Description:
Rfam assigns this 160-nucleotide RNA from Caldimonas brevitalea to the family "FMN riboswitch aptamer (RFN element)". It scores 89 bits against the family's covariance model. The family's consensus secondary structure is taken from published work.
RNA sequence: GCGGGUCUUCAGGGCGGGGUGGAAGUCCCCACCGGCGGUAGGAACCAGGGUCAGGUCGGCCCCGGUUCGAGCCCGCGAGCGCCCAGGGUCCACCCCUGGGGUCAGCAGAUCCGGUUCAAGCCGGAGCCGACGGUCACAGUCCGGAUGAAAGAAGACAACG
Dot-bracket structure: ....((((((......(((.......))).[[((((((................................[[))))..((........................))...(((((......)))))]])).(((.....]]))).......))))))....